[Rfam]
RNA sequence: GCCGUUGAAAUCCCGCACCAGCCCCCCUAUAUCUUCCCUGUCGGGCAACCGACUAUGGACAUAAACGCGCUCGUAAUAAGCGGAUCGGACCCGGGGGCGGUACCCGGCGGCUCCACCAAACUCUUUCCGGCGGCAACCUUCGUUUGGGGCUGCAUUCGGAACCGGGGGGCCGAAAUAGGAUCGACGGACGUCUAAAGGGGUUUGCUUUGUCUCGGUGAGAUACCACCGUUAUCGGUUCAACAAGUACAAUUGCAAACGACAAUCGUGCUCCGGUUGCUCUGGCUGCGUAAGCAGUUCGAGGAAUCGAAAUCUAAGUCCUUGCGCCUAGCAGUGUAAGGCGGGGUUCGCAGGUACCUGGCAACAGAAACCUGCACU
Numbered sequence: 001g002c003c004g005u006u007g008a009a010a011u012c013c014c015g016c017a018c019c020a021g022c023c024c025c026c027c028u029a030u031a032u033c034u035u036c037c038c039u040g041u042c043g044g045g046c047a048a049c050c051g052a053c054u055a056u057g058g059a060c061a062u063a064a065a066c067g068c069g070c071u072c073g074u075a076a077u078a079a080g081c082g083g084a085u086c087g088g089a090c091c092c093g094g095g096g097g098c099g100g101u102a103c104c105c106g107g108c109g110g111c112u113c114c115a116c117c118a119a120a121c122u123c124u125u126u127c128c129g130g131c132g133g134c135a136a137c138c139u140u141c142g143u144u145u146g147g148g149g150c151u152g153c154a155u156u157c158g159g160a161a162c163c164g165g166g167g168g169g170c171c172g173a174a175a176u177a178g179g180a181u182c183g184a185c186g187g188a189c190g191u192c193u194a195a196a197g198g199g200g201u202u203u204g205c206u207u208u209g210u211c212u213c214g215g216u217g218a219g220a221u222a223c224c225a226c227c228g229u230u231a232u233c234g235g236u237u238c239a240a241c242a243a244g245u246a247c248a249a250u251u252g253c254a255a256a257c258g259a260c261a262a263u264c265g266u267g268c269u270c271c272g273g274u275u276g277c278u279c280u281g282g283c284u285g286c287g288u289a290a291g292c293a294g295u296u297c298g299a300g301g302a303a304u305c306g307a308a309a310u311c312u313a314a315g316u317c318c319u320u321g322c323g324c325c326u327a328g329c330a331g332u333g334u335a336a337g338g339c340g341g342g343g344u345u346c347g348c349a350g351g352u353a354c355c356u357g358g359c360a361a362c363a364g365a366a367a368c369c370u371g372c373a374c375u
Stems, first nucleotide, its partner, number of pairs: 040053005057212005067205002069201004081190002085187003091107005108172007213228004219238002222236003341356004347372006

Overview
A member of the RNA family "Alphaproteobacteria transfer-messenger RNA" from Pseudooceanicola nitratireducens, 375 nucleotides long. The family's RNA type in Rfam is non-coding RNA gene. The family's consensus secondary structure is taken from published work. A reference for the family is Mao et al. (2010), "Variations on the tmRNA gene", RNA Biol.